Rfam assigns this 45-nucleotide RNA sequence from Candidatus Moduliflexus flocculans to the family "Acido-Lenti-1 RNA". The match comes from Rfam's covariance-model search (38 bits).
RNA sequence: CCCAGGGCUGCGCCCUGGGCUAAUAUGGCCUGCCCUUUCAGGGCA
Numbered sequence: 001c002c003c004a005g006g007g008c009u010g011c012g013c014c015c016u017g018g019g020c021u022a023a024u025a026u027g028g029c030c031u032g033c034c035c036u037u038u039c040a041g042g043g044c045a
Stems, first nucleotide, its partner, number of pairs: 001019008032044005